[Rfam]
RNA sequence: AACAGAAUAUACUCCGAAGUCCACUGUCCUGUGGCAGUUGCUAUGGCGGUCGGGCCGACAGGGUGCAUCCGGAAACGGAUACGCCUCCCAGUGCGGAAAGGAGAUUACGGCUGUCAGCC
Dot-bracket structure: .((.(.....(((((...((((..(..((...(((....)))..))..)..)))).....(((((.(((((....))))).)))))((......))...)))).).....).)).....
RNA: Molybdenum/Tungsten riboswitch aptamer (Moco RNA motif)